RNA sequence: GAACCUAUCCAGUGAUGGUUAGCUGAUUCAAGAGAAGUCAGCAGAAGUCAUAGUAUCAAACCUACGGUUUGAGAAGGAC
Numbered sequence: 001g002a003a004c005c006u007a008u009c010c011a012g013u014g015a016u017g018g019u020u021a022g023c024u025g026a027u028u029c030a031a032g033a034g035a036a037g038u039c040a041g042c043a044g045a046a047g048u049c050a051u052a053g054u055a056u057c058a059a060a061c062c063u064a065c066g067g068u069u070u071g072a073g074a075a076g077g078a079c
Stems, first nucleotide, its partner, number of pairs: 002024001005022003009018003038045002047079003056072006